The record is a 79-nucleotide RNA from Ceutorhynchus assimilis, which matches "mir-263 microRNA precursor family" in Rfam. On this family, see Li et al., BMC Genomics 2009: "Direct sequencing and expression analysis of a large number of miRNAs in Aedes aegypti and a multi-species survey of novel mosquito miRNAs". Its family is annotated with miRNA-mediated post-transcriptional gene silencing and RISC complex in the Gene Ontology. The match comes from Rfam's covariance-model search (57 bits).
RNA sequence: AUCGACCUGCGAAUGGCACUAGAAGAAUUCACGGGUUAUUUUGGAUCCCGUGUUCUUUCGGUGCCAUCCCCGGGUAACG
Numbered sequence: 001a002u003c004g005a006c007c008u009g010c011g012a013a014u015g016g017c018a019c020u021a022g023a024a025g026a027a028u029u030c031a032c033g034g035g036u037u038a039u040u041u042u043g044g045a046u047c048c049c050g051u052g053u054u055c056u057u058u059c060g061g062u063g064c065c066a067u068c069c070c071c072g073g074g075u076a077a078c079g
Stems, first nucleotide, its partner, number of pairs: 005075005013067006020060001022058001023056001025055002030052005